Rfam assigns this 183-nucleotide RNA from Clostridium thermosuccinogenes to the family "Lysine riboswitch aptamer". The organism belongs to Clostridium, within Bacteria. It scores 106 bits against the family's covariance model. Riboswitches are metabolite binding domains within certain messenger RNAs that serve as precision sensors for their corresponding targets.
RNA sequence: AGGUGAGGUAGAGGCGCGGCGUUUAACAGUCUUUAGAGGAGUUUGAGAAGCGAUGAUGCUAUUGAGAAGGAAACGCUGCCGAAGCGAAUAGUAUACUCAGUGCUAUUUGCUGGGCUUGCAGUUAAGAGCUGCAAGACUGUCUCAAUAAAUAAGCCUGAUUUAUUGAGUUGUGCUAUCUCAUUG
Numbered sequence: 001a002g003g004u005g006a007g008g009u010a011g012a013g014g015c016g017c018g019g020c021g022u023u024u025a026a027c028a029g030u031c032u033u034u035a036g037a038g039g040a041g042u043u044u045g046a047g048a049a050g051c052g053a054u055g056a057u058g059c060u061a062u063u064g065a066g067a068a069g070g071a072a073a074c075g076c077u078g079c080c081g082a083a084g085c086g087a088a089u090a091g092u093a094u095a096c097u098c099a100g101u102g103c104u105a106u107u108u109g110c111u112g113g114g115c116u117u118g119c120a121g122u123u124a125a126g127a128g129c130u131g132c133a134a135g136a137c138u139g140u141c142u143c144a145a146u147a148a149a150u151a152a153g154c155c156u157g158a159u160u161u162a163u164u165g166a167g168u169u170g171u172g173c174u175a176u177c178u179c180a181u182u183g
Stems, first nucleotide, its partner, number of pairs: 006178006016079009031064001034061003038057001083111012112138002115135008141167009